The family of this 126-nucleotide sequence from Ricinus communis is "Small nucleolar RNA snoR77". On this family, see Marker et al., Curr Biol 2002: "Experimental RNomics: identification of 140 candidates for small non-messenger RNAs in the plant Arabidopsis thaliana". It is one of the family's seed sequences. Rfam links the family to the GO terms nucleolus and RNA processing. The family's consensus secondary structure was predicted with WAR.
RNA sequence: AGGCAGCCUCUUUGCUGAUAUUAAAAUAGCUAAGAAGGUGUUUAACUUCUCGUAUAUCAAUGUCUUUUGCUCUUCAGAUUUGCUGAGUCUUAUCCUUGAAGCUGGUCUAGUAAGCUUAAGCACAUU
Numbered sequence: 001a002g003g004c005a006g007c008c009u010c011u012u013u014g015c016u017g018a019u020a021u022u023a024a025a026a027u028a029g030c031u032a033a034g035a036a037g038g039u040g041u042u043u044a045a046c047u048u049c050u051c052g053u054a055u056a057u058c059a060a061u062g063u064c065u066u067u068u069g070c071u072c073u074u075c076a077g078a079u080u081u082g083c084u085g086a087g088u089c090u091u092a093u094c095c096u097u098g099a100a101g102c103u104g105g106u107c108u109a110g111u112a113a114g115c116u117u118a119a120g121c122a123c124a125u126u
Stems, first nucleotide, its partner, number of pairs: 002042004007038002009035004014030004064120003069115003076108005082102003087094001088092001